RNA sequence: CUUUGUGAUCUUCCACAGCUUUCUUGAACUGCAUCUCUCAGAGGAGCGGCAGCUUCAACUCCUCCACCCGCAUCAGCAGGUGCAUGCAGUUCAAUAAAGCUGUGGGAAACUGCAGAGA
Dot-bracket structure: ..(((((.....(((.((((((.((((.(((((...................................................))))).)))).)))))).))).....)))))...
Numbered sequence: 001c002u003u004u005g006u007g008a009u010c011u012u013c014c015a016c017a018g019c020u021u022u023c024u025u026g027a028a029c030u031g032c033a034u035c036u037c038u039c040a041g042a043g044g045a046g047c048g049g050c051a052g053c054u055u056c057a058a059c060u061c062c063u064c065c066a067c068c069c070g071c072a073u074c075a076g077c078a079g080g081u082g083c084a085u086g087c088a089g090u091u092c093a094a095u096a097a098a099g100c101u102g103u104g105g106g107a108a109a110c111u112g113c114a115g116a117g118a
Stems, first nucleotide, its partner, number of pairs: 003115005013105003017101006024094004029089005
MIR396 microRNA precursor family: a 118-nucleotide sequence from Zea mays. The base pairs follow the family's consensus structure, which was predicted with WAR. The sequence is in the family's curated seed alignment. Rfam links the family to the GO terms RISC complex and miRNA-mediated post-transcriptional gene silencing. NCBI's taxonomy places the organism under Eukaryota, Streptophytina, Tracheophyta, Spermatophyta, Zea. The literature on the family includes a 2005 paper in Plant Physiol by Xie et al., "Expression of Arabidopsis MIRNA genes".